Glycine riboswitch aptamer: a 92-nucleotide RNA from Listeria innocua. Gene Ontology term of the family: glycine biosynthetic process. About the family: This family represents the bacterial glycine riboswitch.
RNA sequence: GUGAAUGUAAACAGAGAGACUGUGAAAAGCAGCGCCGACGGGGAAAGCAUAAGUUAUGUGAAACUCUCAGGCAAAAGGAUGUUUACGGGACG
Numbered sequence: 001g002u003g004a005a006u007g008u009a010a011a012c013a014g015a016g017a018g019a020c021u022g023u024g025a026a027a028a029g030c031a032g033c034g035c036c037g038a039c040g041g042g043g044a045a046a047g048c049a050u051a052a053g054u055u056a057u058g059u060g061a062a063a064c065u066c067u068c069a070g071g072c073a074a075a076a077g078g079a080u081g082u083u084u085a086c087g088g089g090a091c092g
Stems, first nucleotide, its partner, number of pairs: 006087008020032003034072003037068002041066003047059002